[Rfam]
RNA sequence: CCCUAGCCCUGAUUGCAGCGAAAAUCCUUUUUGUUUUUUCCUUUAAAAAACAAAAAGAUUGUAGCGAAAAGCAGGAUUAGCU
Numbered sequence: 001c002c003c004u005a006g007c008c009c010u011g012a013u014u015g016c017a018g019c020g021a022a023a024a025u026c027c028u029u030u031u032u033g034u035u036u037u038u039u040c041c042u043u044u045a046a047a048a049a050a051c052a053a054a055a056a057g058a059u060u061g062u063a064g065c066g067a068a069a070a071g072c073a074g075g076a077u078u079a080g081c082u
Stems, first nucleotide, its partner, number of pairs: 009074003013070002018065002023060004029055005034049005